The family of this 369-nucleotide RNA from Parvularcula bermudensis is "Alphaproteobacteria transfer-messenger RNA". Its Rfam clan is "tRNA clan". The family's consensus secondary structure is taken from published work. Lineage of the source: Bacteria > Alphaproteobacteria > Parvularculales > Parvularculaceae > Parvularcula bermudensis. Rfam's curators write: Bacterial tmRNA, also known as 10Sa RNA or SsrA, is named for its dual tRNA and mRNA-like properties.
RNA sequence: GGACUUCAAAUCUUUACCCACAGCCCCUAUGUUACCUGUGAUGCUUCGGUAUCUAUAGCGAUAAAUGGCGUUCAGAAUAAGCGGCCCGGACCCGGGGGCGGUACCCGGCGGCUCCACCACAUGACUUCUCUCCCUCGGGGGGGGGGAGCCCUGCGGCGGGGCCGAAAUAGGAUCGACGGACGUGUAAAGGUUCGGCUUUCGCUCGGAUGGCCUCCGUUAUUGGGCCAUGAUGAAUAGUUGCCAAUGACAACUCUUCGGAAGGUUUCGCUCUCGCUGCGUAACGCGGUGCAAGCAAACCACUAUUAAAGCCCUAGGCCCUUUCCCGGUCUAGGCGGGGUCCCGGGGAACCUGGCAACAGAAUCCCCGACU
Numbered sequence: 001g002g003a004c005u006u007c008a009a010a011u012c013u014u015u016a017c018c019c020a021c022a023g024c025c026c027c028u029a030u031g032u033u034a035c036c037u038g039u040g041a042u043g044c045u046u047c048g049g050u051a052u053c054u055a056u057a058g059c060g061a062u063a064a065a066u067g068g069c070g071u072u073c074a075g076a077a078u079a080a081g082c083g084g085c086c087c088g089g090a091c092c093c094g095g096g097g098g099c100g101g102u103a104c105c106c107g108g109c110g111g112c113u114c115c116a117c118c119a120c121a122u123g124a125c126u127u128c129u130c131u132c133c134c135u136c137g138g139g140g141g142g143g144g145g146g147a148g149c150c151c152u153g154c155g156g157c158g159g160g161g162c163c164g165a166a167a168u169a170g171g172a173u174c175g176a177c178g179g180a181c182g183u184g185u186a187a188a189g190g191u192u193c194g195g196c197u198u199u200c201g202c203u204c205g206g207a208u209g210g211c212c213u214c215c216g217u218u219a220u221u222g223g224g225c226c227a228u229g230a231u232g233a234a235u236a237g238u239u240g241c242c243a244a245u246g247a248c249a250a251c252u253c254u255u256c257g258g259a260a261g262g263u264u265u266c267g268c269u270c271u272c273g274c275u276g277c278g279u280a281a282c283g284c285g286g287u288g289c290a291a292g293c294a295a296a297c298c299a300c301u302a303u304u305a306a307a308g309c310c311c312u313a314g315g316c317c318c319u320u321u322c323c324c325g326g327u328c329u330a331g332g333c334g335g336g337g338u339c340c341c342g343g344g345g346a347a348c349c350u351g352g353c354a355a356c357a358g359a360a361u362c363c364c365c366g367a368c369u
Base pairs, nucleotide, nucleotide: 040053041052042051043050044049057203058202059201060200061199068196069195073190082182083181086179087178088177092108093107094106095105096104109164110163111162112161113160114159115158204216205215206214207213208227209226210225211224212223335350336349337348338347341366342365343364344363345362346361